[Rfam]
RNA: MIR6274 microRNA precursor family
RNA sequence: AGAUAUCACUGUUUUGUUAUCCCCGACCAAUAACAUAAUGACAUGUGGAAAAGUUAUCUGACGUGUUAUUAUGUUAUUGGUCGGGAAUAACAAAAAGUGUUUUUCC
Numbered sequence: 001a002g003a004u005a006u007c008a009c010u011g012u013u014u015u016g017u018u019a020u021c022c023c024c025g026a027c028c029a030a031u032a033a034c035a036u037a038a039u040g041a042c043a044u045g046u047g048g049a050a051a052a053g054u055u056a057u058c059u060g061a062c063g064u065g066u067u068a069u070u071a072u073g074u075u076a077u078u079g080g081u082c083g084g085g086a087a088u089a090a091c092a093a094a095a096a097g098u099g100u101u102u103u104u105c106c
Base pairs, nucleotide, nucleotide: 002105003104005102012095013094014093015092016091017090018089019088020087022085023084024083025082026081027080028079029078030077031076032075033074034073035072036071037070038069039068040067041066042065043064044063045062046061048059050057